A member of the RNA family "Giant, ornate, lake- and Lactobacillales-derived (GOLLD) RNA" from Pogseptimavirus PG07, 418 nucleotides long.
By type it is a non-coding RNA gene.
Pairs were carried over by alignment from the consensus structure, which is taken from published work.
The source organism's lineage runs through Viruses, Duplodnaviria, Uroviricota, Caudoviricetes and Pogseptimavirus PG07.
[Rfam]
RNA sequence: UGACUGAGUGGAAUAUCCGGUUAUCCAAAAGGUAACGGGCUCCUGUGGGGACACUCAGUUGGGAAUGCUUAAAGAAGUAAUUAUGAAUAUUUGGUUUUCAUACAACUAACUUACAAAAGCAAAAGAGCCCCACGGUACAUGUUGAAAGGCGGUUAAUUCCUAGCCCCCUCAAGGAACUAGGAGCAUAGAAGGUCGCAAGCCUGAUAUGUUUUAUCGGAAAAAGAAUUUAGCGUCUUAGCGGAUGCGAACGGGUCGCAAGCUCGGAAGGAAUGGAACGAUAGAGUAAACAUGUAUGACACUCCCACAGCAUGGAGUCUAAAUAUUGCACCGCUGUUCGGAUACCAGUGAGAACUGGUGGAUAAGCCCUAAGACAUACGGGUAGUGAAAGACCGGACAUUUAAGGCUGUAAUCUCAGGCC
Dot-bracket structure: ((((((((((((.(..((.((((((.....))))))))).))).[[[[[[..))))))))).........................................................{{.......]]]]]].(((((((((.....[[[[[....((((((.((......))..))))))(((((..((((.}}..))))..)))))..(((((.........(((.((((........))))...(.(((.....)).).))))........))))).....)))))))))............(((..(........)..)))]]]]].(((.((.(((((((....)))))))[[[..(.(((.........)))...)......)).))).......(((...]]]...))).